[Rfam]
RpsF leader: an 83-nucleotide RNA from Vibrio toranzoniae. Gene Ontology terms of the family: negative regulation of translation and protein binding. A search with the family's covariance model found it, with a score of 40 bits.
Nucleotides: 083
Stems, first nucleotide, its partner, number of pairs: 016074007023056006032044002
Number, partner (000 for none) and nucleotide at each position: 001000g002000g003000u004000c005000a006000u007000u008000u009000u010000u011000c012000u013000u014000u015000a016074g017073u018072u019071c020070c021069u022068u023056g024055c025054u026053u027052c028051c029000c030000u031000u032044g033043g034000a035000c036000g037000a038000c039000c040000g041000a042000g043033c044032c045000u046000u047000u048000c049000g050000u051028g052027g053026a054025a055024g056023c057000u058000a059000a060000u061000a062000a063000u064000c065000c066000g067000u068022a069021a070020g071019g072018a073017g074016c075000a076000a077000c078000c079000a080000a081000a082000u083000g
About this RNA:
Conserved and widely distributed to many bacterial species RNA structure.